mir-63 microRNA precursor family: a 112-nucleotide sequence from Pristionchus pacificus. A reference for the family is de Wit et al. (2009), "Repertoire and evolution of miRNA genes in four divergent nematode species", Genome Res. Rfam 15.1 lists 26 matches to the family in 11 species. It is one of the family's seed sequences.
RNA sequence: CCCACCAGAGCCUUCCACCUGGGGUUCCAUUCGUAUGAGUUUCAUGGACUUUCCCUACAGCUCUAUGACACUGAGUGCGGAGUGGAACCCCUAUGGAUAAUAGUUCUUUGAU
Numbered sequence: 001c002c003c004a005c006c007a008g009a010g011c012c013u014u015c016c017a018c019c020u021g022g023g024g025u026u027c028c029a030u031u032c033g034u035a036u037g038a039g040u041u042u043c044a045u046g047g048a049c050u051u052u053c054c055c056u057a058c059a060g061c062u063c064u065a066u067g068a069c070a071c072u073g074a075g076u077g078c079g080g081a082g083u084g085g086a087a088c089c090c091c092u093a094u095g096g097a098u099a100a101u102a103g104u105u106c107u108u109u110g111a112u
Base pairs, nucleotide, nucleotide: 003110004109007107008106009105010104011103014100015096016095017094021091022090023089024088025087026086027085028084029083030081031080032079033078034077035076036075038072039071040070042068043067044066045065046064047063048062051060

Notes
Pairs were carried over by alignment from the consensus structure, which was predicted with RNAalifold.